[Rfam]
RNA: U11 spliceosomal RNA
Organism: Carlito syrichta
RNA sequence: AAAAGGGGCUUCUGUCGUGAAUGGUACAUGCAGGGAAAUUCAGUUGCUCUUCAUGUGGAAUUGACAUCAAGAGAUUUUAGAAGCAUAAUUUUUUGCUACCUGCACAGUUGGUGACCGGAAAAAAAAAAAGUCAUGUCCCU
Numbered sequence: 001a002a003a004a005g006g007g008g009c010u011u012c013u014g015u016c017g018u019g020a021a022u023g024g025u026a027c028a029u030g031c032a033g034g035g036a037a038a039u040u041c042a043g044u045u046g047c048u049c050u051u052c053a054u055g056u057g058g059a060a061u062u063g064a065c066a067u068c069a070a071g072a073g074a075u076u077u078u079a080g081a082a083g084c085a086u087a088a089u090u091u092u093u094u095g096c097u098a099c100c101u102g103c104a105c106a107g108u109u110g111g112u113g114a115c116c117g118g119a120a121a122a123a124a125a126a127a128a129a130g131u132c133a134u135g136u137c138c139c140u
Stems, first nucleotide, its partner, number of pairs: 008084005013026005027055004032050004037045002056079007110139002113137003